[Rfam]
RNA sequence: AGUUUGUGAGAAGGUUGGGGUGGCCCAUCGCUUAGGGUAUGACGGGUUCCUGUCAUACUACAGUGGUGCGAAACUCCGUACUUACACGCGAGCU
Numbered sequence: 001a002g003u004u005u006g007u008g009a010g011a012a013g014g015u016u017g018g019g020g021u022g023g024c025c026c027a028u029c030g031c032u033u034a035g036g037g038u039a040u041g042a043c044g045g046g047u048u049c050c051u052g053u054c055a056u057a058c059u060a061c062a063g064u065g066g067u068g069c070g071a072a073a074c075u076c077c078g079u080a081c082u083u084a085c086a087c088g089c090g091a092g093c094u
Base pairs, nucleotide, nucleotide: 001094002093003092004091005090006089007088008087017077018076019075020074021073026068027067028066029065030064037058038057039056040055041054042053043052044051045050

This 94-nucleotide RNA from Tombusvirus cymbidii belongs to the Rfam family "Tombusvirus internal replication element (IRE)". The family's RNA type in Rfam is cis-regulatory element. A reference for the family is Monkewich et al. (2005), "The p92 Polymerase Coding Region Contains an Internal RNA Element Required at an Early Step in Tombusvirus Genome Replication", J Virol. This family represents the Tombusvirus internal replication element (IRE) which is located within the region coding for p92 polymerase. NCBI's taxonomy places the organism under Viruses, Orthornavirae, Tombusviridae, Procedovirinae, Tombusvirus cymbidii.